Shown here is a 267-nucleotide RNA sequence from Ibidorhyncha struthersii, a member of the family "RNase MRP". The family's RNA type in Rfam is ribozyme. A search with the family's covariance model found it, with a score of 134 bits. Rfam's curators write: RNase MRP is an enzymatically active ribonucleoprotein with two distinct roles in eukaryotes. The source organism's lineage runs through Eukaryota, Craniata, Teleostomi, Saurischia and Ibidorhyncha.
[Rfam]
Nucleotides: 267
Base pairs, nucleotide, nucleotide: 002267003266004265005264007262008261009260010259011258014222015221016220017219018218019217023074024073025072026071027070028069037053038052039051040050041049080252081251083250084249085248086247095107096106097105098104108123109122110121111120112119113118125195126194127193132191133190134189136188137187142184143183145181152178153177154176155175162171163170164169224237225236226235227234228233
Number, partner (000 for none) and nucleotide at each position: 001000g002267g003266a004265u005264g006000c007262u008261c009260u010259g011258a012000a013000g014222a015221c016220c017219u018218g019217c020000u021000c022000g023074c024073u025072a026071g027070g028069c029000c030000a031000c032000g033000c034000a035000c036000g037053g038052a039051g040050g041049a042000c043000g044000c045000u046000g047000g048000u049041u050040c051039c052038u053037c054000a055000c056000g057000g058000g059000c060000c061000c062000c063000g064000c065000g066000c067000c068000c069028g070027c071026c072025u073024a074023g075000g076000g077000g078000a079000a080252a081251g082000u083250c084249c085248c086247c087000g088000g089000a090000c091000c092000g093000c094000c095107g096106g097105c098104a099000g100000a101000a102000a103000g104098u105097g106096c107095c108123g109122g110121g111120c112119g113118c114000u115000g116000c117000c118113g119112c120111g121110c122109c123108c124000c125195g126194u127193c128000c129000g130000c131000c132191g133190c134189c135000g136188c137187c138000u139000c140000a141000c142184g143183c144000c145181c146000a147000u148000c149000a150000c151000u152178c153177c154176g155175c156000c157000g158000a159000g160000a161000a162171g163170c164169c165000c166000g167000c168000g169164g170163g171162c172000c173000g174000a175155g176154c177153g178152g179000g180000u181145g182000a183143g184142c185000g186000c187137g188136g189134g190133g191132c192000g193127g194126g195125c196000g197000c198000u199000c200000g201000u202000c203000a204000c205000c206000g207000c208000c209000a210000c211000a212000g213000a214000c215000a216000u217019g218018c219017a220016g221015g222014u223000a224237g225236u226235g227234c228233g229000c230000g231000g232000g233228c234227g235226c236225a237224c238000c239000a240000a241000c242000a243000g244000a245000a246000c247086g248085g249084g250083g251081c252080u253000c254000a255000c256000u257000c258011u259010c260009a261008g262007g263000c264005c265004a266003u267002c